RNA sequence: UGCUCGAUGAUUAAUCCAUGUUAUGCCAUGGCAAUAUACACUAUUCUGAAUCAUAUUAAGAUGCCAUAAACAUUAUGAGAGCA
Dot-bracket structure: (((((.........................................................................)))))
Small nucleolar RNA U54: an 83-nucleotide RNA sequence. Its Rfam clan is "U54 clan". On this family, see Chen et al., Nucleic Acids Res 2003: "The high diversity of snoRNAs in plants: identification and comparative study of 120 snoRNA genes from Oryza sativa". Rfam classes the family as a C/D-box small nucleolar RNA. U54 is a C/D box small nucleolar RNA, which acts as a methylation guide for 18S ribosomal RNA in plants. The family's consensus secondary structure was predicted with PFOLD. The sequence is in the family's curated seed alignment.